[Rfam]
RNA sequence: AAAUAGCCCCGAUAGUAGCGGCAUCCUCUUGUAACGGUCCCGAAACUUCGGGACGGAACAAGAGAUAGAGCGGAUAGCGGGAAUAGCU
Numbered sequence: 001a002a003a004u005a006g007c008c009c010c011g012a013u014a015g016u017a018g019c020g021g022c023a024u025c026c027u028c029u030u031g032u033a034a035c036g037g038u039c040c041c042g043a044a045a046c047u048u049c050g051g052g053a054c055g056g057a058a059c060a061a062g063a064g065a066u067a068g069a070g071c072g073g074a075u076a077g078c079g080g081g082a083a084u085a086g087c088u
Base pairs, nucleotide, nucleotide: 009080010079011078013076014075018071019070023066024065025064028062029061030060031059032058038057039056
RNA: Flavo-1 RNA